Description
Rfam assigns this 90-nucleotide sequence from Punica granatum to the family "Small nucleolar RNA snoR26". Its family is annotated with RNA processing and nucleolus in the Gene Ontology. It scores 71 bits against the family's covariance model. Pairs were carried over by alignment from the consensus structure, which was predicted with WAR. It is annotated as a C/D-box small nucleolar RNA. On this family, see Brown et al., RNA 2001: "Multiple snoRNA gene clusters from Arabidopsis".
RNA sequence: CAAGCAUCGGUGAUGAGUACUUAGAAUCGUUAUCCUUGCACUUUGAUCGCCGGUGAAGAAUUUGGGGAAAUUUGUUUCUCUAAGAUGCCU
Numbered sequence: 001c002a003a004g005c006a007u008c009g010g011u012g013a014u015g016a017g018u019a020c021u022u023a024g025a026a027u028c029g030u031u032a033u034c035c036u037u038g039c040a041c042u043u044u045g046a047u048c049g050c051c052g053g054u055g056a057a058g059a060a061u062u063u064g065g066g067g068a069a070a071u072u073u074g075u076u077u078c079u080c081u082a083a084g085a086u087g088c089c090u
Stems, first nucleotide, its partner, number of pairs: 002090001004088005